[Rfam]
RNA sequence: UCGCUGUAAUGGCAUUUGGCGGAAGUGUUAGCGCUUUCUGUUCUUCAGCCUGGCGCUGCUCGGCUGAGCAUGUCCGGUUCGAUCCCUGUGGAAGGCAUGUUGGACAGUCUGAGUAAUCGGCUGUGCACGUGCUGACUGCAAGCCCGUGACGGGACCACUGGAGGGAAGCAAUUCAGCACAGUGAGUCACACAUAGGGAGGCCCACCGGGACGCAUCUCGCCGGCUCAAAGUGCCAUGUUGCGGAACCUGCUUCCACGACUUCUUUU
Numbered sequence: 001u002c003g004c005u006g007u008a009a010u011g012g013c014a015u016u017u018g019g020c021g022g023a024a025g026u027g028u029u030a031g032c033g034c035u036u037u038c039u040g041u042u043c044u045u046c047a048g049c050c051u052g053g054c055g056c057u058g059c060u061c062g063g064c065u066g067a068g069c070a071u072g073u074c075c076g077g078u079u080c081g082a083u084c085c086c087u088g089u090g091g092a093a094g095g096c097a098u099g100u101u102g103g104a105c106a107g108u109c110u111g112a113g114u115a116a117u118c119g120g121c122u123g124u125g126c127a128c129g130u131g132c133u134g135a136c137u138g139c140a141a142g143c144c145c146g147u148g149a150c151g152g153g154a155c156c157a158c159u160g161g162a163g164g165g166a167a168g169c170a171a172u173u174c175a176g177c178a179c180a181g182u183g184a185g186u187c188a189c190a191c192a193u194a195g196g197g198a199g200g201c202c203c204a205c206c207g208g209g210a211c212g213c214a215u216c217u218c219g220c221c222g223g224c225u226c227a228a229a230g231u232g233c234c235a236u237g238u239u240g241c242g243g244a245a246c247c248u249g250c251u252u253c254c255a256c257g258a259c260u261u262c263u264u265u266u
Base pairs, nucleotide, nucleotide: 003013004012018263019262021260022259025256026255027254030251031250032249033248036245037244038243046240047239048238049237051235052234053233054232055231061222062221063220064219066218067217068216070215071214072213073212074208075207076206077205078204081201083198084197085196086195087194088193089192090191093133095132096131097130098129099128100127102126104124105123106122107121108120109119111118112117136142137141146189147188148187149186150185156183157182158181159180160179165174166173167172

The family of this 266-nucleotide RNA sequence from Ascoidea rubescens is "Fungal signal recognition particle RNA". Taxonomically the source falls in Ascoidea rubescens (Eukaryota, Fungi, saccharomyceta, Ascoideaceae).